A member of the RNA family "c-sis internal ribosome entry site (IRES)", 597 nucleotides long. The sequence is in the family's curated seed alignment. On this family, see Sella et al., Mol Cell Biol 1999: "Differentiation-induced internal translation of c-sis mRNA: analysis of the cis elements and their differentiation-linked binding to the hnRNP C protein". Rfam links the family to the GO term ribosome binding. Rfam describes the family as follows. This family represents the c-sis 5'-UTR which contains three modules that can individually mediate internal ribosome entry. However, the full length sequence is required for maximal IRES activity. It is thought that the three IRES elements are somehow responsive to cellular changes and act to regulate the level of translation.
RNA sequence: CGGAGCAGCCGCAGCUCACAGCCCAGAGGACGCCCAGAGCGGCAGCGCGCAGACAGACGGACCGACGGACUCCGCCGCGUCCACCUGUCUGCCCGGCCCGGCACUGCGCGCACGGGCACGGCCGAGCGCGGAGCAGCCGUGCCCGCCGCCCGGGCCCGCCAAGGCGCACACGCUCCGGCCCCCCCCACCCGGCCCGGGCGGGAGUUUGCACCUCUCCCUGCCCGGGUACUCGGGCCGCCGCUGCAAAGCCAACUUUGGAAAAAGUUUUUGGGGGGAGACUUUGGCCUUGAGGUGCCCGGCUCUGCACUUUCCGACUUCGGGGGCCUUUCUAGAAAAUGUUGCAAAAAAGCUAAGCCAGCGGGCAGAGGAAAACGCCUAUAGCCGGCGAGUGAAGACGAACCAUCGGCUGCCGUGUUCUUUUUCCUCUUGGAGGUUGGAGUCCCCUGGGCGCCCCCACACGGCUAGACGCCUCGGCUGGUUCGCGACGCAGACCCCCGGCCGUGGAUGCUCGCUCGGGCUCGGGAUCCGCCCAGGUAGCGGCCGGACCCUGGUCCCGCGCCCAGGCCCUCCCCAGCCCCCCAACGACGGAGCCGGGGC
Numbered sequence: 001c002g003g004a005g006c007a008g009c010c011g012c013a014g015c016u017c018a019c020a021g022c023c024c025a026g027a028g029g030a031c032g033c034c035c036a037g038a039g040c041g042g043c044a045g046c047g048c049g050c051a052g053a054c055a056g057a058c059g060g061a062c063c064g065a066c067g068g069a070c071u072c073c074g075c076c077g078c079g080u081c082c083a084c085c086u087g088u089c090u091g092c093c094c095g096g097c098c099c100g101g102c103a104c105u106g107c108g109c110g111c112a113c114g115g116g117c118a119c120g121g122c123c124g125a126g127c128g129c130g131g132a133g134c135a136g137c138c139g140u141g142c143c144c145g146c147c148g149c150c151c152g153g154g155c156c157c158g159c160c161a162a163g164g165c166g167c168a169c170a171c172g173c174u175c176c177g178g179c180c181c182c183c184c185c186c187a188c189c190c191g192g193c194c195c196g197g198g199c200g201g202g203a204g205u206u207u208g209c210a211c212c213u214c215u216c217c218c219u220g221c222c223c224g225g226g227u228a229c230u231c232g233g234g235c236c237g238c239c240g241c242u243g244c245a246a247a248g249c250c251a252a253c254u255u256u257g258g259a260a261a262a263a264g265u266u267u268u269u270g271g272g273g274g275g276a277g278a279c280u281u282u283g284g285c286c287u288u289g290a291g292g293u294g295c296c297c298g299g300c301u302c303u304g305c306a307c308u309u310u311c312c313g314a315c316u317u318c319g320g321g322g323g324c325c326u327u328u329c330u331a332g333a334a335a336a337u338g339u340u341g342c343a344a345a346a347a348a349g350c351u352a353a354g355c356c357a358g359c360g361g362g363c364a365g366a367g368g369a370a371a372a373c374g375c376c377u378a379u380a381g382c383c384g385g386c387g388a389g390u391g392a393a394g395a396c397g398a399a400c401c402a403u404c405g406g407c408u409g410c411c412g413u414g415u416u417c418u419u420u421u422u423c424c425u426c427u428u429g430g431a432g433g434u435u436g437g438a439g440u441c442c443c444c445u446g447g448g449c450g451c452c453c454c455c456a457c458a459c460g461g462c463u464a465g466a467c468g469c470c471u472c473g474g475c476u477g478g479u480u481c482g483c484g485a486c487g488c489a490g491a492c493c494c495c496c497g498g499c500c501g502u503g504g505a506u507g508c509u510c511g512c513u514c515g516g517g518c519u520c521g522g523g524a525u526c527c528g529c530c531c532a533g534g535u536a537g538c539g540g541c542c543g544g545a546c547c548c549u550g551g552u553c554c555c556g557c558g559c560c561c562a563g564g565c566c567c568u569c570c571c572c573a574g575c576c577c578c579c580c581a582a583c584g585a586c587g588g589a590g591c592c593g594g595g596g597c
Base pairs, nucleotide, nucleotide: 002250003249005244006243007242008241009240011238012237014235015234016233017232020230021229025215026214027213028212029211031166032165033164034163041160042159043158045155046154049102050101052098054096059093060092062091064089065088066087067086068085072079073077107152108151110149111148113145114144115143116142117141118140119139120138122131123130124129169208170207172205173204174203175202176201178199180198181197182196184192185191252265253264254263255262256261272572273571274570275569276568277567279564280563281562283560284559285558291513292512293511294510299508300507301505302504303503304502305501311498312497313496319495320494321493322492324490341350342349354386355385356384358382359381362379364377365376367373389488390487391486394483396482397481398480399479400478401477402476403474404473405472406471407465408464409462410461411460412459413458414457415456416438417437418436420433421432422431423430424429439449440448441447442446515554516553517552518551521548522547523546525545526544527543533542534541535540577596578595579594580593583590